[Rfam]
RNA sequence: GUCAACCACCCCGCCCUGAAGGGCGGAGCUUGAAAGGAGGUUCGACAGGCUCGGGUUGACCAGGGAAAGCGGUACCCAACCCGCUCCGUUGGCAACAGGUACAAGACCCACCCCGGGAUGCUUCCUCAGUCCCGGGCUCUGGAAGCCGCCGAUGCAGACAACCGCGAGGGCCAGGACGAAACGGUCGGCGGCAAGGGAGCGAUCCCGAAGCCGGUUGCCAACAUUUCCGAGGGGAGACGCUU
Numbered sequence: 001g002u003c004a005a006c007c008a009c010c011c012c013g014c015c016c017u018g019a020a021g022g023g024c025g026g027a028g029c030u031u032g033a034a035a036g037g038a039g040g041u042u043c044g045a046c047a048g049g050c051u052c053g054g055g056u057u058g059a060c061c062a063g064g065g066a067a068a069g070c071g072g073u074a075c076c077c078a079a080c081c082c083g084c085u086c087c088g089u090u091g092g093c094a095a096c097a098g099g100u101a102c103a104a105g106a107c108c109c110a111c112c113c114c115g116g117g118a119u120g121c122u123u124c125c126u127c128a129g130u131c132c133c134g135g136g137c138u139c140u141g142g143a144a145g146c147c148g149c150c151g152a153u154g155c156a157g158a159c160a161a162c163c164g165c166g167a168g169g170g171c172c173a174g175g176a177c178g179a180a181a182c183g184g185u186c187g188g189c190g191g192c193a194a195g196g197g198a199g200c201g202a203u204c205c206c207g208a209a210g211c212c213g214g215u216u217g218c219c220a221a222c223a224u225u226u227c228c229g230a231g232g233g234g235a236g237a238c239g240c241u242u
Stems, first nucleotide, its partner, number of pairs: 001060007010028001012025002015022002029049004063228005068085005088222009098212001108142002112136008120238001122236006145192009